[Rfam]
RNA sequence: GUGCCCGUCAUUGGGGAGUAGCCGCCCUCCGAACGCGAGAGGGGCUUGCGUCAACAGACUCGGUCCGCGGAUCGUGGCGCAAGCGACACCAGGUUUGGCGAGACCUUUGACCAUGUGCUCCGGAUUGGGCCGGGCGGCGCAUGGUCAUCGGUUUUCCGGCCCUGGAGCAUUU
Dot-bracket structure: .........................(((...........))).((((((((((.......(((((....)))))))))))))))......(...............................................................................).
Numbered sequence: 001g002u003g004c005c006c007g008u009c010a011u012u013g014g015g016g017a018g019u020a021g022c023c024g025c026c027c028u029c030c031g032a033a034c035g036c037g038a039g040a041g042g043g044g045c046u047u048g049c050g051u052c053a054a055c056a057g058a059c060u061c062g063g064u065c066c067g068c069g070g071a072u073c074g075u076g077g078c079g080c081a082a083g084c085g086a087c088a089c090c091a092g093g094u095u096u097g098g099c100g101a102g103a104c105c106u107u108u109g110a111c112c113a114u115g116u117g118c119u120c121c122g123g124a125u126u127g128g129g130c131c132g133g134g135c136g137g138c139g140c141a142u143g144g145u146c147a148u149c150g151g152u153u154u155u156c157c158g159g160c161c162c163u164g165g166a167g168c169a170u171u172u
Stems, first nucleotide, its partner, number of pairs: 026042003044084010061074005091171001
This 172-nucleotide sequence from Oxalobacteraceae bacterium OM1 belongs to the Rfam family "Manganese Mn2+ riboswitch aptamer (yybP-ykoY)". Lineage of the source: Bacteria > Pseudomonadati > Betaproteobacteria > Burkholderiales > Oxalobacteraceae. This RNA was originally discovered in E. coli during a large scale screen and was named SraF. The family was later found to exist upstream of related families of protein genes in many bacteria, including the the yybP and ykoK genes in B. subtilis. The pairing is the family consensus, mapped onto this sequence. A reference for the family is Argaman et al. (2001), "Novel small RNA-encoding genes in the intergenic regions of Escherichia coli", Curr Biol.